[Rfam]
RNA: Bacteroidales small SRP
RNA sequence: UUGCAGCCGGCAAGUCUUAUACGGCCAGCUCCUACAGAACUCCCCCAGGAUCGGAAGAUAGCAAGGGUAUGUGGUUGAGCGGUGCGAUGUAAGUAACUUGCCGAUUU
Numbered sequence: 001u002u003g004c005a006g007c008c009g010g011c012a013a014g015u016c017u018u019a020u021a022c023g024g025c026c027a028g029c030u031c032c033u034a035c036a037g038a039a040c041u042c043c044c045c046c047a048g049g050a051u052c053g054g055a056a057g058a059u060a061g062c063a064a065g066g067g068u069a070u071g072u073g074g075u076u077g078a079g080c081g082g083u084g085c086g087a088u089g090u091a092a093g094u095a096a097c098u099u100g101c102c103g104a105u106u107u
Base pairs, nucleotide, nucleotide: 008103009102010101011100012099013098014097015096017092018091019090020089021088022086023085024083025082